[Rfam]
RNA sequence: CCGUCCAAACCCGUAGAUCCGAACUUGUGGUAAUCGCAACACAAGCUCGAUUCUAUGGGGAUAGGCGGU
Numbered sequence: 001c002c003g004u005c006c007a008a009a010c011c012c013g014u015a016g017a018u019c020c021g022a023a024c025u026u027g028u029g030g031u032a033a034u035c036g037c038a039a040c041a042c043a044a045g046c047u048c049g050a051u052u053c054u055a056u057g058g059g060g061a062u063a064g065g066c067g068g069u
Stems, first nucleotide, its partner, number of pairs: 002067004007062001010059003015054003020049003024045006

mir-10 microRNA precursor family: a 69-nucleotide RNA sequence from Penaeus vannamei. Rfam links the family to the GO terms miRNA-mediated post-transcriptional gene silencing and RISC complex. For this family Rfam cites "microRNAs: tiny regulators with great potential" (Ambros, Cell, 2001). The organism belongs to Penaeus, within Eukaryota.